[Rfam]
RNA: MIR473 microRNA precursor family
Organism: Nicotiana attenuata
RNA sequence: UUUGUUCACUCUCCCUCAAGGGCUUCUGGCUUAAAAUGCUUAAUCUUUGGUUUGUGUUAAUGCCAGAGGUCUUUCGAGUGAGAGUGGAUAA
Numbered sequence: 001u002u003u004g005u006u007c008a009c010u011c012u013c014c015c016u017c018a019a020g021g022g023c024u025u026c027u028g029g030c031u032u033a034a035a036a037u038g039c040u041u042a043a044u045c046u047u048u049g050g051u052u053u054g055u056g057u058u059a060a061u062g063c064c065a066g067a068g069g070u071c072u073u074u075c076g077a078g079u080g081a082g083a084g085u086g087g088a089u090a091a
Stems, first nucleotide, its partner, number of pairs: 006087008015078001017076001018074013